[Rfam]
RNA sequence: AUAAAAGAGUACCAAAAUGUCGUAUUCUGACAUGUUUACGAAGGGAGUACCGCUCCCUUCUUUUU
Numbered sequence: 001a002u003a004a005a006a007g008a009g010u011a012c013c014a015a016a017a018u019g020u021c022g023u024a025u026u027c028u029g030a031c032a033u034g035u036u037u038a039c040g041a042a043g044g045g046a047g048u049a050c051c052g053c054u055c056c057c058u059u060c061u062u063u064u065u
Stems, first nucleotide, its partner, number of pairs: 001035003006028007040060008

The family of this 65-nucleotide RNA sequence from Salmonella enterica is "STnc290 Hfq binding RNA". The family's RNA type in Rfam is small RNA. The base pairs follow the family's consensus structure, which was predicted with RNAalifold. Rfam's curators put it in the seed alignment. The organism belongs to Salmonella enterica subsp. enterica serovar Saintpaul, within Bacteria. For this family Rfam cites "A small non-coding RNA of the invasion gene island (SPI-1) represses outer membrane protein synthesis from the Salmonella core genome" (Pfeiffer et al., Mol Microbiol, 2007).